[Rfam]
RNA: Group II catalytic intron D1-D4-1
RNA sequence: UAACCGGCUUCGAAAGAGGCCGCUGAACGAUCAGAAGUCAGCCGAGGCCAUAGUACCUGUUAUUCUAGAGAACAGGGAAGGGC
Number, nucleotide and partner (000 for none) at each position: 001u025002a024003a000004c000005c022006g021007g020008c019009u018010u017011c016012g000013a000014a000015a000016g011017a010018g009019g008020c007021c006022g005023c000024u002025g001026a000027a000028c000029g000030a000031u000032c000033a000034g000035a000036a000037g000038u045039c044040a000041g000042c000043c000044g039045a038046g000047g083048c082049c081050a000051u000052a000053g000054u000055a000056c076057c075058u074059g073060u072061u071062a000063u000064u000065c000066u000067a000068g000069a000070g000071a061072a060073c059074a058075g057076g056077g000078a000079a000080g000081g049082g048083c047